[Rfam]
RNA sequence: UAUAAAGAAUUUCAGAAUCAGGCCGGGGCAUCCGUUGCCCCGUGUACUCGGUCGUACAUCCAGCCGGUAGCCUGAUUCCUUGCAUUGAAGCGAUGUACGGAGUUUAUAGAGC
Number, nucleotide and partner (000 for none) at each position: 001u000002a000003u000004a000005a000006a000007g000008a104009a103010u102011u000012u101013c100014a000015g078016a077017a076018u075019c074020a073021g072022g071023c070024c042025g041026g040027g039028g038029c037030a000031u000032c000033c000034g000035u000036u000037g029038c028039c027040c026041c025042g024043u000044g000045u000046a068047c067048u000049c066050g065051g064052u000053c000054g000055u000056a000057c000058a000059u000060c000061c000062a000063g000064c051065c050066g049067g047068u046069a000070g023071c022072c021073u020074g019075a018076u017077u016078c015079c000080u000081u097082g000083c095084a094085u093086u000087g000088a000089a000090g000091c000092g000093a085094u084095g083096u000097a081098c000099g000100g013101a012102g010103u009104u008105u000106a000107u000108a000109g000110a000111g000112c000
This 112-nucleotide sequence from Enterobacteriaceae bacterium RIT714 belongs to the Rfam family "iscR stability element". Rfam links the family to the GO term response to host iron concentration. Taxonomically the source falls in Enterobacteriaceae (Bacteria, Pseudomonadati, Gammaproteobacteria, Enterobacterales). It scores 111 bits against the family's covariance model. The family's consensus secondary structure is taken from published work. For this family Rfam cites "Small RNA-induced differential degradation of the polycistronic mRNA iscRSUA" (Desnoyers et al., EMBO J, 2009).